This 89-nucleotide sequence from Serratia rubidaea belongs to the Rfam family "CyaR/Rye RNA". A reference for the family is Righetti et al. (2016), "Temperature-responsive in vitro RNA structurome of Yersinia pseudotuberculosis", Proc Natl Acad Sci U S A. It scores 83 bits against the family's covariance model. This sRNA was originally identified in a large scale screen of E. coli. It was shown to bind Hfq and called RyeE. This sRNA has since been characterised as a post-transcriptional regulator of the 18 kDa OmpX porin in Salmonella. Phylogenetic and mutational analyses suggest that a conserved RNA hairpin of this sRNA which features a C-rich apical loop, acts to sequester the Shine-Dalgarno sequence of ompX mRNA and inhibits translational initiation. The family's RNA type in Rfam is small RNA.
[Rfam]
RNA sequence: ACCGCUAAAAUAAAGAACGAGAAUAUUUGCAUAGCAAUACUAGGAACCACCUCCUUGGCCGGCCCAAUCUCCCUUGGGCUGGCUUUUUC
Numbered sequence: 001a002c003c004g005c006u007a008a009a010a011u012a013a014a015g016a017a018c019g020a021g022a023a024u025a026u027u028u029g030c031a032u033a034g035c036a037a038u039a040c041u042a043g044g045a046a047c048c049a050c051c052u053c054c055u056u057g058g059c060c061g062g063c064c065c066a067a068u069c070u071c072c073c074u075u076g077g078g079c080u081g082g083c084u085u086u087u088u089c
Stems, first nucleotide, its partner, number of pairs: 042055004057084011